[Rfam]
RNA sequence: UUACCCCUGCCUGAUUCGUGAUGACCAAAGACAUGGUGAACCAACGCACCGUUUCAGGGAGUCGAAAACCUGGGUGGUGAGCAUGCCCUAUUGUACAGGGAGCCUAAAACCUGGGGGGAGACACCCACCUACAGAGGUAGGUUCAACGGUAUUUCGUCACACGGUCAAGGCGGGGUUUCU
Numbered sequence: 001u002u003a004c005c006c007c008u009g010c011c012u013g014a015u016u017c018g019u020g021a022u023g024a025c026c027a028a029a030g031a032c033a034u035g036g037u038g039a040a041c042c043a044a045c046g047c048a049c050c051g052u053u054u055c056a057g058g059g060a061g062u063c064g065a066a067a068a069c070c071u072g073g074g075u076g077g078u079g080a081g082c083a084u085g086c087c088c089u090a091u092u093g094u095a096c097a098g099g100g101a102g103c104c105u106a107a108a109a110c111c112u113g114g115g116g117g118g119a120g121a122c123a124c125c126c127a128c129c130u131a132c133a134g135a136g137g138u139a140g141g142u143u144c145a146a147c148g149g150u151a152u153u154u155c156g157u158c159a160c161a162c163g164g165u166c167a168a169g170g171c172g173g174g175g176u177u178u179c180u
Base pairs, nucleotide, nucleotide: 003177005175006174007173008172009171010170011169012167013166014165015164017163018162019161033150034149036147037145038144039143040142041141042140057126058125059124061122062121063120069115070114071113072112073111074110075109081103082102086100087099088098089097
A member of the RNA family "6S / SsrS RNA" from Acanthopleuribacter pedis, 180 nucleotides long. The organism belongs to Acanthopleuribacter, within Bacteria. It is annotated as a non-coding RNA gene. A search with the family's covariance model found it, with a score of 92 bits. E. coli 6S RNA was the first non coding RNA to be sequenced, but its function was unknown until recently. It consists of 184 nucleotides that fold into an extended hairpin structure with a large single-stranded internal bulge. The 6S RNA specifically associates with RNA polymerase holoenzyme containing the sigma70 specificity factor. This interaction represses expression from a sigma70-dependent promoter during stationary phase. 6S RNA homologs have recently been identified in most bacterial genomes.